Notes:
This 237-nucleotide RNA from Monosporascus sp. CRB-8-3 belongs to the Rfam family "Small nucleolar RNA snR191". It is annotated as an H/ACA-box small nucleolar RNA.
RNA sequence: CCCCAAUGCUUCCUGUCAGGACACUUUCUACAUUCUUCGAUGGAAGAUCGUCUGUUACAUCAUUGGGAGAUUGAAAUUUCGAGCUUGCUGUUCCGACGUCGUUUUGACUAGGGACUGACUGGGUCCCGUUUUGGGGUUCUGUCGUUAGCUCGAGUUUGUUUCAUUUUGAGUUGAAAUUUACCUCCCCCCGUUCCGGGUGGCUAGAUGGUAGAUUUCUUAGUAAUGAUUCAUACAUCU
Numbered sequence: 001c002c003c004c005a006a007u008g009c010u011u012c013c014u015g016u017c018a019g020g021a022c023a024c025u026u027u028c029u030a031c032a033u034u035c036u037u038c039g040a041u042g043g044a045a046g047a048u049c050g051u052c053u054g055u056u057a058c059a060u061c062a063u064u065g066g067g068a069g070a071u072u073g074a075a076a077u078u079u080c081g082a083g084c085u086u087g088c089u090g091u092u093c094c095g096a097c098g099u100c101g102u103u104u105u106g107a108c109u110a111g112g113g114a115c116u117g118a119c120u121g122g123g124u125c126c127c128g129u130u131u132u133g134g135g136g137u138u139c140u141g142u143c144g145u146u147a148g149c150u151c152g153a154g155u156u157u158g159u160u161u162c163a164u165u166u167u168g169a170g171u172u173g174a175a176a177u178u179u180a181c182c183u184c185c186c187c188c189c190g191u192u193c194c195g196g197g198u199g200g201c202u203a204g205a206u207g208g209u210a211g212a213u214u215u216c217u218u219a220g221u222a223a224u225g226a227u228u229c230a231u232a233c234a235u236c237u
Base pairs, nucleotide, nucleotide: 003066004065005064006063007062019053020052021051022050024046025045026044027043028042079153080152081151082150083149084148087116089114091112092111098108099107100106117143118142122138123137124136125135126134127133128132157230158229161226162225163224164223173216174215175214176213179210180209181208182207184200185199187197188196189195190194
The base pairs follow the family's consensus structure, which was predicted with WAR.
On this family, see Badis et al., RNA 2003: "A snoRNA that guides the two most conserved pseudouridine modifications within rRNA confers a growth advantage in yeast".
The organism belongs to Monosporascus, within Eukaryota.
The match comes from Rfam's covariance-model search (66 bits).